[Rfam]
RNA: PhrS
RNA sequence: GUCAUUCCAGAUCACGCGCCGUUUAGGAGGCAACCAUGUUUAUCGAUACUGUAGUUAUUGCUGGUAUUGGCACUGUACUGCUGAUGUUCGCCUUCUUUGGUGGGGUCGGCAUGUUUAUUUGGAAGGACUCGCACAAGCGCAAGUAAGGCUGAGUCUUUCAACACGACUGCACGCAAGGCAGCUUCAGGCGACUUAGGUCGCCUUUUUUUUUG
Numbered sequence: 001g002u003c004a005u006u007c008c009a010g011a012u013c014a015c016g017c018g019c020c021g022u023u024u025a026g027g028a029g030g031c032a033a034c035c036a037u038g039u040u041u042a043u044c045g046a047u048a049c050u051g052u053a054g055u056u057a058u059u060g061c062u063g064g065u066a067u068u069g070g071c072a073c074u075g076u077a078c079u080g081c082u083g084a085u086g087u088u089c090g091c092c093u094u095c096u097u098u099g100g101u102g103g104g105g106u107c108g109g110c111a112u113g114u115u116u117a118u119u120u121g122g123a124a125g126g127a128c129u130c131g132c133a134c135a136a137g138c139g140c141a142a143g144u145a146a147g148g149c150u151g152a153g154u155c156u157u158u159c160a161a162c163a164c165g166a167c168u169g170c171a172c173g174c175a176a177g178g179c180a181g182c183u184u185c186a187g188g189c190g191a192c193u194u195a196g197g198u199c200g201c202c203u204u205u206u207u208u209u210u211u212g
Stems, first nucleotide, its partner, number of pairs: 005102001007100002051061003080087002169179002172177001186203007